[Rfam]
RNA sequence: ACUAUUACCCUAACUUGAGCAUUGACUUUGACUACAAAGUAAGUGCUACUUGUUGGGGCAGUUUUA
Numbered sequence: 001a002c003u004a005u006u007a008c009c010c011u012a013a014c015u016u017g018a019g020c021a022u023u024g025a026c027u028u029u030g031a032c033u034a035c036a037a038a039g040u041a042a043g044u045g046c047u048a049c050u051u052g053u054u055g056g057g058g059c060a061g062u063u064u065u066a
Stems, first nucleotide, its partner, number of pairs: 004062003008058004013053002017049001018047006025040006
The record is a 66-nucleotide RNA sequence from Lates calcarifer, which matches "miR-430 microRNA precursor family" in Rfam. A search with the family's covariance model found it, with a score of 52 bits. The family is grouped with related families in Rfam's "mir-290 clan". The source organism's lineage runs through Eukaryota, Teleostei, Acanthomorphata, Euacanthomorphacea and Lates. A reference for the family is Giraldez et al. (2005), "MicroRNAs regulate brain morphogenesis in zebrafish", Science.